[Rfam]
RNA sequence: GCUGCUGCUCGCACCCACUGCUGGUGCCCGGCACUGGUCCCGAUCACUUGGUACCAUCAGUGGGUGCAAGCGGCGGCUG
Number, nucleotide and partner (000 for none) at each position: 001g000002c000003u000004g074005c073006u072007g071008c070009u069010c000011g067012c066013a065014c064015c063016c062017a061018c060019u059020g058021c000022u056023g055024g054025u053026g052027c051028c050029c000030g000031g000032c000033a000034c000035u000036g000037g000038u000039c000040c000041c000042g000043a000044u000045c000046a000047c000048u000049u000050g028051g027052u026053a025054c024055c023056a022057u000058c020059a019060g018061u017062g016063g015064g014065u013066g012067c011068a000069a009070g008071c007072g006073g005074c004075g000076g000077c000078u000079g000
RNA: mir-9198 microRNA precursor family
Organism: Pipistrellus kuhlii